[Rfam]
RNA: mir-23 microRNA precursor family
Organism: Heterocephalus glaber
RNA sequence: GGCCGGCUGGGGUUCCUGGGGAUGGGAUUUGCUGUCUCACAAAUCACAUUGCCAGGGAUUUCCAACCGACC
Numbered sequence: 001g002g003c004c005g006g007c008u009g010g011g012g013u014u015c016c017u018g019g020g021g022a023u024g025g026g027a028u029u030u031g032c033u034g035u036c037u038c039a040c041a042a043a044u045c046a047c048a049u050u051g052c053c054a055g056g057g058a059u060u061u062c063c064a065a066c067c068g069a070c071c
Stems, first nucleotide, its partner, number of pairs: 001071002004068003010063002012059008021050004026045005